This 123-nucleotide RNA sequence from Lathyrus oleraceus belongs to the Rfam family "Small nucleolar RNA Z278".
Nucleotides: 123
Base pairs, nucleotide, nucleotide: 001123002122003121055068056067057066058065059064
Number, partner (000 for none) and nucleotide at each position: 001123a002122c003121c004000g005000a006000u007000g008000a009000u010000g011000u012000u013000u014000u015000u016000u017000a018000a019000c020000a021000a022000u023000c024000c025000a026000a027000c028000u029000u030000g031000u032000c033000u034000g035000a036000g037000g038000u039000u040000g041000u042000g043000g044000u045000u046000a047000a048000c049000c050000c051000a052000a053000g054000a055068u056067c057066c058065u059064g060000u061000u062000c063000g064059c065058a066057g067056g068055g069000u070000g071000a072000a073000c074000c075000u076000a077000c078000u079000u080000g081000g082000u083000g084000u085000u086000g087000u088000c089000a090000c091000a092000u093000u094000u095000c096000c097000a098000a099000u100000g101000a102000c103000a104000u105000a106000a107000a108000g109000a110000g111000a112000u113000u114000a115000a116000a117000c118000u119000g120000a121003g122002g123001u
The family has 7 seed sequences and 1,130 matches in Rfam 15.1.
The organism belongs to Lathyrus, within Eukaryota.
From the family's description: snoZ278 is a C/D box small nucleolar RNA. Its methylation guide targets have not been reported.
A search with the family's covariance model found it, with a score of 41 bits.
Rfam links the family to the GO terms RNA processing and nucleolus.
It is annotated as a C/D-box small nucleolar RNA.